RNA: mir-BHRF1-2 microRNA precursor family
RNA sequence: CUUUUAAAUUCUGUUGCAGCAGAUAGCUGAUACCCAAUGUUAUCUUUUGCGGCAGAAAUUGAAAG
Numbered sequence: 001c002u003u004u005u006a007a008a009u010u011c012u013g014u015u016g017c018a019g020c021a022g023a024u025a026g027c028u029g030a031u032a033c034c035c036a037a038u039g040u041u042a043u044c045u046u047u048u049g050c051g052g053c054a055g056a057a058a059u060u061g062a063a064a065g
Stems, first nucleotide, its partner, number of pairs: 001065007009057011021045007